[Rfam]
RNA sequence: AAAUAGCCCCGAUAGCAAUGGAAAUCCUGUCUUUGCGAAAACCGAAUGCUCUUUGUGAGAUUACAACGUUCCUCGCAAUGACAGAUUGAAAUGGAUAGCGGGAUUAGCU
Numbered sequence: 001a002a003a004u005a006g007c008c009c010c011g012a013u014a015g016c017a018a019u020g021g022a023a024a025u026c027c028u029g030u031c032u033u034u035g036c037g038a039a040a041a042c043c044g045a046a047u048g049c050u051c052u053u054u055g056u057g058a059g060a061u062u063a064c065a066a067c068g069u070u071c072c073u074c075g076c077a078a079u080g081a082c083a084g085a086u087u088g089a090a091a092u093g094g095a096u097a098g099c100g101g102g103a104u105u106a107g108c109u
Stems, first nucleotide, its partner, number of pairs: 009101003013097002018092002023087004029082003033078006
Shown here is a 109-nucleotide RNA sequence from Flavobacterium amnicola, a member of the family "Flavo-1 RNA". Lineage of the source: Bacteria > Flavobacteriia > Flavobacteriales > Flavobacteriaceae > Flavobacterium.